[Rfam]
RNA sequence: GGAGAGGUGGCUGAGCGGUCGAAAGCGGCGGUCUUGAAAACCGUUGAGGGUUUAUCCCCUCCGUGGGUUCGAAUCCCACUCUCUCCG
Numbered sequence: 001g002g003a004g005a006g007g008u009g010g011c012u013g014a015g016c017g018g019u020c021g022a023a024a025g026c027g028g029c030g031g032u033c034u035u036g037a038a039a040a041c042c043g044u045u046g047a048g049g050g051u052u053u054a055u056c057c058c059c060u061c062c063g064u065g066g067g068u069u070c071g072a073a074u075c076c077c078a079c080u081c082u083c084u085c086c087g
Stems, first nucleotide, its partner, number of pairs: 001086007010026003028044005063079005